[Rfam]
RNA: Archaeal signal recognition particle RNA
RNA sequence: UGCCAGGCUAGGCCGGGGGGUUAGGCGUCCCCUGUAACCCGAAAGCGUCUAUACGCGGGGGCGACAGCCGAGGGCGGUGUAACCAGGCCCGUUUCAGACCAUGCAGCCCUGUUGAAGCUCUGUCCUCCGGGGUCGCGGGAGCGCUGUGGGCUUUCGGAGGGAAGCUCCACAGCGCUUUGCCACGGGAACCCCGCCAGGCCCGGAAGGGAGCAGCGGUACCGUGGACCGUUGGCGCUCGGAGGGUAGCGGGGCGGAGGGGCUGUAUGGGCCCCUGGAAUGGGUUCUGGGCAUCCACCUCGGCGUGCCUGGCA
Numbered sequence: 001u002g003c004c005a006g007g008c009u010a011g012g013c014c015g016g017g018g019g020g021u022u023a024g025g026c027g028u029c030c031c032c033u034g035u036a037a038c039c040c041g042a043a044a045g046c047g048u049c050u051a052u053a054c055g056c057g058g059g060g061g062c063g064a065c066a067g068c069c070g071a072g073g074g075c076g077g078u079g080u081a082a083c084c085a086g087g088c089c090c091g092u093u094u095c096a097g098a099c100c101a102u103g104c105a106g107c108c109c110u111g112u113u114g115a116a117g118c119u120c121u122g123u124c125c126u127c128c129g130g131g132g133u134c135g136c137g138g139g140a141g142c143g144c145u146g147u148g149g150g151c152u153u154u155c156g157g158a159g160g161g162a163a164g165c166u167c168c169a170c171a172g173c174g175c176u177u178u179g180c181c182a183c184g185g186g187a188a189c190c191c192c193g194c195c196a197g198g199c200c201c202g203g204a205a206g207g208g209a210g211c212a213g214c215g216g217u218a219c220c221g222u223g224g225a226c227c228g229u230u231g232g233c234g235c236u237c238g239g240a241g242g243g244u245a246g247c248g249g250g251g252c253g254g255a256g257g258g259g260c261u262g263u264a265u266g267g268g269c270c271c272c273u274g275g276a277a278u279g280g281g282u283u284c285u286g287g288g289c290a291u292c293c294a295c296c297u298c299g300g301c302g303u304g305c306c307u308g309g310c311a
Stems, first nucleotide, its partner, number of pairs: 001311008012062003015033007038059004067301007076292004080287001082285001086283011097269001099267012112254001117252007124242008132233004136228003139177011150165006180224006191216004199208003